The record is a 70-nucleotide RNA, which matches "Cyano-1 RNA" in Rfam. It is annotated as a small RNA.
RNA sequence: AUGUGUGUGAAGGAGUGGUUUUACUAAUAUAGUGGAAACAAGGAAACACUAGAUUUAGUAAAACCCAAAG
Numbered sequence: 001a002u003g004u005g006u007g008u009g010a011a012g013g014a015g016u017g018g019u020u021u022u023a024c025u026a027a028u029a030u031a032g033u034g035g036a037a038a039c040a041a042g043g044a045a046a047c048a049c050u051a052g053a054u055u056u057a058g059u060a061a062a063a064c065c066c067a068a069a070g
Base pairs, nucleotide, nucleotide: 017065018064019063020062021061024058025057030052032049033048034047